The family of this 172-nucleotide RNA sequence from Oryza glumipatula is "MIR807 microRNA precursor family".
Gene Ontology terms of the family: RISC complex and miRNA-mediated post-transcriptional gene silencing.
The match comes from Rfam's covariance-model search (156 bits).
The family's consensus secondary structure was predicted with WAR.
[Rfam]
RNA sequence: GGUUUCACGAUGAAUAGAUUCACCCGUGAUAUAGCAUGGUUGUUCCACUUAGGACAAGGACGUAGCAUCCUAUUACCAGCCAUCGCACAAAAUUAAUAGGAUGCCACGUCCUCAACCUAAGUGGAAUAACCACGUCAUCUCAUAGGUGAAUCCAUUCAUUAAUAUUGUAGUU
Numbered sequence: 001g002g003u004u005u006c007a008c009g010a011u012g013a014a015u016a017g018a019u020u021c022a023c024c025c026g027u028g029a030u031a032u033a034g035c036a037u038g039g040u041u042g043u044u045c046c047a048c049u050u051a052g053g054a055c056a057a058g059g060a061c062g063u064a065g066c067a068u069c070c071u072a073u074u075a076c077c078a079g080c081c082a083u084c085g086c087a088c089a090a091a092a093u094u095a096a097u098a099g100g101a102u103g104c105c106a107c108g109u110c111c112u113c114a115a116c117c118u119a120a121g122u123g124g125a126a127u128a129a130c131c132a133c134g135u136c137a138u139c140u141c142a143u144a145g146g147u148g149a150a151u152c153c154a155u156u157c158a159u160u161a162a163u164a165u166u167g168u169a170g171u172u
Base pairs, nucleotide, nucleotide: 001172002171003170004169006167007166009160010159011158013156014155015154017152018151019150020149021148022147023146024145026143027142028141029140031138032137034135035134037132038131039130040129041128042127043126044125047122048121050119051118053116059110060109061108065104066103067102068101069100070099071098072097073096074095075094082093083092